The family of this 105-nucleotide RNA sequence from Molossus molossus is "Vault RNA". Taxonomically the source falls in Molossus (Eukaryota, Euteleostomi, Mammalia, Chiroptera). It scores 62 bits against the family's covariance model. Rfam classes the family as a non-coding RNA gene.
RNA sequence: GGGCUGGCUUUAGCUCAGUGGUGCCUUCGAAUUGAACUUUCAGCUUGCUAACCACUCUUGCCUGCGAGGGUGGUUCGAGACCUGCAGGUGCUCUCCAGCUCUAUA
Numbered sequence: 001g002g003g004c005u006g007g008c009u010u011u012a013g014c015u016c017a018g019u020g021g022u023g024c025c026u027u028c029g030a031a032u033u034g035a036a037c038u039u040u041c042a043g044c045u046u047g048c049u050a051a052c053c054a055c056u057c058u059u060g061c062c063u064g065c066g067a068g069g070g071u072g073g074u075u076c077g078a079g080a081c082c083u084g085c086a087g088g089u090g091c092u093c094u095c096c097a098g099c100u101c102u103a104u105a
Stems, first nucleotide, its partner, number of pairs: 002100006013089003018085004026079008